[Rfam]
RNA sequence: UGGCGCCCAACGUGGGGCCUGGAUACUGGGGGCAUAUCAUGAGGGAGGUCGGAAAAAGGAAGGAGUGCACUCGCUAAAUCUCAAGCACUUCGGAGAUGCGUCGCGGGAGCCUGCCACAACUGAACCGAAGGUAAGUUGUGCCGUCCAAUCAUGGGGCAAGGAUUAAGCCAGCAUCAGAUUUAUGUUACGCAGUUGAGGGAGGCUCUCAAGACAAGAGGAGUAAAGGUUAAGACUGUGGAUUUAUUUCAUUUCUUUGAUUUUGUAAAGGACAUAUGUCCCC
Numbered sequence: 001u002g003g004c005g006c007c008c009a010a011c012g013u014g015g016g017g018c019c020u021g022g023a024u025a026c027u028g029g030g031g032g033c034a035u036a037u038c039a040u041g042a043g044g045g046a047g048g049u050c051g052g053a054a055a056a057a058g059g060a061a062g063g064a065g066u067g068c069a070c071u072c073g074c075u076a077a078a079u080c081u082c083a084a085g086c087a088c089u090u091c092g093g094a095g096a097u098g099c100g101u102c103g104c105g106g107g108a109g110c111c112u113g114c115c116a117c118a119a120c121u122g123a124a125c126c127g128a129a130g131g132u133a134a135g136u137u138g139u140g141c142c143g144u145c146c147a148a149u150c151a152u153g154g155g156g157c158a159a160g161g162a163u164u165a166a167g168c169c170a171g172c173a174u175c176a177g178a179u180u181u182a183u184g185u186u187a188c189g190c191a192g193u194u195g196a197g198g199g200a201g202g203c204u205c206u207c208a209a210g211a212c213a214a215g216a217g218g219a220g221u222a223a224a225g226g227u228u229a230a231g232a233c234u235g236u237g238g239a240u241u242u243a244u245u246u247c248a249u250u251u252c253u254u255u256g257a258u259u260u261u262g263u264a265a266a267g268g269a270c271a272u273a274u275g276u277c278c279c280c
Base pairs, nucleotide, nucleotide: 006032007031008030012026013025014024038048040046087132088131089130090128091127099122103117105115106114139158140157141156144155145154146153147152165206167203168202169201215255216254217253218252219251220250224242225241226240227239228238267278268277269276270275
This 280-nucleotide RNA from Nannospalax galili belongs to the Rfam family "Mason-Pfizer monkey virus packaging signal". A reference for the family is Mustafa et al. (2004), "Mutational analysis of the predicted secondary RNA structure of the Mason-Pfizer monkey virus packaging signal", Virus Res. By type it is a cis-regulatory element. It scores 153 bits against the family's covariance model.